Rfam assigns this 75-nucleotide sequence from Danionella cerebrum to the family "mir-129 microRNA precursor family". The family's consensus secondary structure was predicted with RNAalifold.
[Rfam]
RNA sequence: CAGAUACUUUUUGGGGUAAGGGCUUCCUGACGAGUGACUUAUGGCCCAGCAAGCCCAGACCGCAAAAAGAACCGU
Numbered sequence: 001c002a003g004a005u006a007c008u009u010u011u012u013g014g015g016g017u018a019a020g021g022g023c024u025u026c027c028u029g030a031c032g033a034g035u036g037a038c039u040u041a042u043g044g045c046c047c048a049g050c051a052a053g054c055c056c057a058g059a060c061c062g063c064a065a066a067a068a069g070a071a072c073c074g075u
Stems, first nucleotide, its partner, number of pairs: 007069007015061003020056004025051001027049002